[Rfam]
RNA sequence: GAUCAAUGAUGAAAAUACCCAAAUCUGAGAUUCAGAAGGCCUUCCAGUCUACCUGAUGCAUGAUCUUUGUGGUUCUGAGA
Numbered sequence: 001g002a003u004c005a006a007u008g009a010u011g012a013a014a015a016u017a018c019c020c021a022a023a024u025c026u027g028a029g030a031u032u033c034a035g036a037a038g039g040c041c042u043u044c045c046a047g048u049c050u051a052c053c054u055g056a057u058g059c060a061u062g063a064u065c066u067u068u069g070u071g072g073u074u075c076u077g078a079g080a
Stems, first nucleotide, its partner, number of pairs: 029059001032056002037050004
A member of the RNA family "Small nucleolar RNA U2-19" from Crocuta crocuta, 80 nucleotides long. It is annotated as a C/D-box small nucleolar RNA. The match comes from Rfam's covariance-model search (88 bits).